[Rfam]
This 88-nucleotide RNA from Methylomusa anaerophila belongs to the Rfam family "c-di-GMP-I riboswitch aptamer". The literature on the family includes a 2008 paper in Science by Sudarsan et al., "Riboswitches in Eubacteria Sense the Second Messenger Cyclic Di-GMP". Lineage of the source: Bacteria > Bacillota > Negativicutes > Selenomonadales > Methylomusa. The match comes from Rfam's covariance-model search (81 bits). Its family is annotated with cyclic-di-GMP binding in the Gene Ontology. The family is grouped with related families in Rfam's "c-di-GMP_I riboswitch clan".

RNA sequence: UUUUAAAGUGGGCAAACUUAUCGAAAGGUAAGGACGCAAAGCCGUGGGUCUAAAGGGAAAAAAUACCUAUGAUUGCCAGGCUGCCGUU
Numbered sequence: 001u002u003u004u005a006a007a008g009u010g011g012g013c014a015a016a017c018u019u020a021u022c023g024a025a026a027g028g029u030a031a032g033g034a035c036g037c038a039a040a041g042c043c044g045u046g047g048g049u050c051u052a053a054a055g056g057g058a059a060a061a062a063a064u065a066c067c068u069a070u071g072a073u074u075g076c077c078a079g080g081c082u083g084c085c086g087u088u
Stems, first nucleotide, its partner, number of pairs: 012037002017032006040082004045078003048073003055067002058064001